[Rfam]
RNA sequence: AGGCAACGAUGAUGACAGGAACGGUGGCUGUAGGAGUGCUGUGCUGCAGCGUGGAGACACCAGUCCCUCUAAACUGAUGUUGCCA
Numbered sequence: 001a002g003g004c005a006a007c008g009a010u011g012a013u014g015a016c017a018g019g020a021a022c023g024g025u026g027g028c029u030g031u032a033g034g035a036g037u038g039c040u041g042u043g044c045u046g047c048a049g050c051g052u053g054g055a056g057a058c059a060c061c062a063g064u065c066c067c068u069c070u071a072a073a074c075u076g077a078u079g080u081u082g083c084c085a
Stems, first nucleotide, its partner, number of pairs: 002084006

The record is an 85-nucleotide RNA sequence from Ceyx cyanopectus, which matches "Small nucleolar RNA SNORD127" in Rfam. Rfam 15.1 lists 541 matches to the family in 527 species. The source organism's lineage runs through Eukaryota, Euteleostomi, Archelosauria, Aves and Ceyx. A reference for the family is Yang et al. (2006), "snoSeeker: an advanced computational package for screening of guide and orphan snoRNA genes in the human genome", Nucleic Acids Res. Rfam classes the family as a C/D-box small nucleolar RNA. The family's consensus secondary structure was predicted with WAR.